[Rfam]
RNA: mir-8517 microRNA precursor family
RNA sequence: UUACUGGACGCUUUCGCUAAUUAACUGUUUUGUCACUCUCUGAAAGAGAACAAUUUGUUUUUUGACAGAGAGGGACAAAACAAUUCAAUAACUAAACCAUCCAGUAAC
Numbered sequence: 001u002u003a004c005u006g007g008a009c010g011c012u013u014u015c016g017c018u019a020a021u022u023a024a025c026u027g028u029u030u031u032g033u034c035a036c037u038c039u040c041u042g043a044a045a046g047a048g049a050a051c052a053a054u055u056u057g058u059u060u061u062u063u064g065a066c067a068g069a070g071a072g073g074g075a076c077a078a079a080a081c082a083a084u085u086c087a088a089u090a091a092c093u094a095a096a097c098c099a100u101c102c103a104g105u106a107a108c
Stems, first nucleotide, its partner, number of pairs: 001107006012096003016092001018090002021087001023085002026082003029069007049059004